[Rfam]
RNA sequence: UCUUAGUUAGCAUAGUAAUAUGCUUUGCUAGGGCUACACGCCUAUUAAUUAUAUCUCUUUGAGAUAUUAAAUUCAAUUAAAACAUUAAGUAAGCAAUGCUGAAAUAUGAAUUAAUGGUGAUUUACUUUAAGUUAAAAGGCUACAUAAC
Numbered sequence: 001u002c003u004u005a006g007u008u009a010g011c012a013u014a015g016u017a018a019u020a021u022g023c024u025u026u027g028c029u030a031g032g033g034c035u036a037c038a039c040g041c042c043u044a045u046u047a048a049u050u051a052u053a054u055c056u057c058u059u060u061g062a063g064a065u066a067u068u069a070a071a072u073u074c075a076a077u078u079a080a081a082a083c084a085u086u087a088a089g090u091a092a093g094c095a096a097u098g099c100u101g102a103a104a105u106a107u108g109a110a111u112u113a114a115u116g117g118u119g120a121u122u123u124a125c126u127u128u129a130a131g132u133u134a135a136a137a138g139g140c141u142a143c144a145u146a147a148c
Stems, first nucleotide, its partner, number of pairs: 001033007009024005040140004045135005076115005083108003092100002